[Rfam]
RNA: Actinobacteria sRNA Ms_IGR-5
Organism: Haloechinothrix alba
RNA sequence: ACACGGGAAAGGAGGUGAUCCGGUAGAUGAUUGGUUAUCGGACGCGUGAGGUGGUCGCCGGCUGACGCUGGGGCCAACGCGAACCACGUCGCCAAUUCCAGGCGGCCACCCGGCCCCCGAGCAUCGGUGUUCGUCCAGCCGACUCCGCUGUCACAGCGGGAAGCGCUCGGGGGUCGCCCCAU
Numbered sequence: 001a002c003a004c005g006g007g008a009a010a011g012g013a014g015g016u017g018a019u020c021c022g023g024u025a026g027a028u029g030a031u032u033g034g035u036u037a038u039c040g041g042a043c044g045c046g047u048g049a050g051g052u053g054g055u056c057g058c059c060g061g062c063u064g065a066c067g068c069u070g071g072g073g074c075c076a077a078c079g080c081g082a083a084c085c086a087c088g089u090c091g092c093c094a095a096u097u098c099c100a101g102g103c104g105g106c107c108a109c110c111c112g113g114c115c116c117c118c119g120a121g122c123a124u125c126g127g128u129g130u131u132c133g134u135c136c137a138g139c140c141g142a143c144u145c146c147g148c149u150g151u152c153a154c155a156g157c158g159g160g161a162a163g164c165g166c167u168c169g170g171g172g173g174u175c176g177c178c179c180c181a182u
Base pairs, nucleotide, nucleotide: 014059015058016057017056018055019054060093061092062091064090065089066088067087070085071084111176112175113174114173115172116171117170118169119168120167121166122165125158126157128155129154130153